[Rfam]
RNA sequence: AGUAGGUGAAAGAACCCGACCAAACCCCACCCCUCCCGCCCCGUGGAUCAAACUCACCCGGGCGGGUGAAAUAGCCCAACACAGCUGGAUUUGGUGCCUGUUGCCUGGCUUACGCUCAACGCGACAGCCGCCGACAUACGUCGGCCCCCGCAGGGACCGGCAAUCCCGUGCGAGGGCCUGACCAACUAGGAAGCGACCCUUCCCG
Dot-bracket structure: .....................................................((((((....))))))..............(.(((...........................))).)......................(((((.(((.((((.......))))..))).)))))..........(((((.....)))))..